[Rfam]
Shown here is a 96-nucleotide RNA sequence from Nicotiana tabacum, a member of the family "MIR6152 microRNA precursor family". The base pairs follow the family's consensus structure, which was predicted with RNAalifold.
RNA sequence: UGGACAAAUUAUUGUAUUCGACUAUAUUCACGACGUGAAAUAAGGGAUUACACUUUUUUAAAAAGGAAAAUGAAUCAAUUAACAUAAUAGACUCCU
Numbered sequence: 001u002g003g004a005c006a007a008a009u010u011a012u013u014g015u016a017u018u019c020g021a022c023u024a025u026a027u028u029c030a031c032g033a034c035g036u037g038a039a040a041u042a043a044g045g046g047a048u049u050a051c052a053c054u055u056u057u058u059u060a061a062a063a064a065g066g067a068a069a070a071u072g073a074a075u076c077a078a079u080u081a082a083c084a085u086a087a088u089a090g091a092c093u094c095c096u
Stems, first nucleotide, its partner, number of pairs: 002095003009090007017082002020080002023077001026075005034065001036063001038058003042054001